[Rfam]
RNA: Bacterial large signal recognition particle RNA
RNA sequence: CCGCGCAGCCGGGGCAUUAGCGGCGCCUUGUACCUGCAAUCCGCUAUAGCAGGGGUGAUAUCGGGCCGAGGGCAGUUUUCUGUAGAGCUGCCCGGUAUAAGUGGUGUUGACGUCUGGGUCUUUCGCAACAGGAAUUCAUGAACCAUGUCAGGUCAGGAAUGAAGCAGCAUUAAGUGAAACCUCCUGUGUGCCGGAAGGGUGCCUGGGCCGAGCUAACUGUACCGGUAACGUCUGUGGACAGCUGUACGACGUCCGGUGCGCGG
Dot-bracket structure: (((((((((((((((.((...)).)))))...(((((...........))))))))....((((((...(.(((.((.(((((((...((..((((((..(((((......((((((((((((((((.(((((.(((((.....((((....(((....)))....))))...)))))...)))))))...))))))...))))))))...))).)).)))))).))....))))))).)).))).)...)))))))))))))
Numbered sequence: 001c002c003g004c005g006c007a008g009c010c011g012g013g014g015c016a017u018u019a020g021c022g023g024c025g026c027c028u029u030g031u032a033c034c035u036g037c038a039a040u041c042c043g044c045u046a047u048a049g050c051a052g053g054g055g056u057g058a059u060a061u062c063g064g065g066c067c068g069a070g071g072g073c074a075g076u077u078u079u080c081u082g083u084a085g086a087g088c089u090g091c092c093c094g095g096u097a098u099a100a101g102u103g104g105u106g107u108u109g110a111c112g113u114c115u116g117g118g119u120c121u122u123u124c125g126c127a128a129c130a131g132g133a134a135u136u137c138a139u140g141a142a143c144c145a146u147g148u149c150a151g152g153u154c155a156g157g158a159a160u161g162a163a164g165c166a167g168c169a170u171u172a173a174g175u176g177a178a179a180c181c182u183c184c185u186g187u188g189u190g191c192c193g194g195a196a197g198g199g200u201g202c203c204u205g206g207g208c209c210g211a212g213c214u215a216a217c218u219g220u221a222c223c224g225g226u227a228a229c230g231u232c233u234g235u236g237g238a239c240a241g242c243u244g245u246a247c248g249a250c251g252u253c254c255g256g257u258g259c260g261c262g263g
Stems, first nucleotide, its partner, number of pairs: 001263007008056003011029005017023002033053005061256006070247001072245003076241002079238007089227002093224006101217002103214003112208008120197006126188002129186005135178005145170004153162003